[Rfam]
Rfam assigns this 178-nucleotide sequence from Sporosarcina sp. Te-1 to the family "Lysine riboswitch aptamer".
Pairs were carried over by alignment from the consensus structure, which is taken from published work.
Lineage of the source: Bacteria > Bacillati > Bacilli > Caryophanales > Sporosarcina.
RNA sequence: AGUAAGGAUAGAGGCGCAAAGACCAUCAGUACACAAUUCGAGGAUAAUGAGAUCCGACGAAGAUUGUGGAAAGGGGAAUUUGCCGAAGUGGAGAGAAGCUCAUUAUCUCGAAGCUGGUUCUGGGUUGAACAAACACAGAAUUGUCAUAUAGGAAACUAUAUGGAGGGCUAUCUUAUGC
Numbered sequence: 001a002g003u004a005a006g007g008a009u010a011g012a013g014g015c016g017c018a019a020a021g022a023c024c025a026u027c028a029g030u031a032c033a034c035a036a037u038u039c040g041a042g043g044a045u046a047a048u049g050a051g052a053u054c055c056g057a058c059g060a061a062g063a064u065u066g067u068g069g070a071a072a073g074g075g076g077a078a079u080u081u082g083c084c085g086a087a088g089u090g091g092a093g094a095g096a097a098g099c100u101c102a103u104u105a106u107c108u109c110g111a112a113g114c115u116g117g118u119u120c121u122g123g124g125u126u127g128a129a130c131a132a133a134c135a136c137a138g139a140a141u142u143g144u145c146a147u148a149u150a151g152g153a154a155a156c157u158a159u160a161u162g163g164a165g166g167g168c169u170a171u172c173u174u175a176u177g178c
Stems, first nucleotide, its partner, number of pairs: 006173006016083005023076002032068007087115003093109004098104001116142007124134003144163007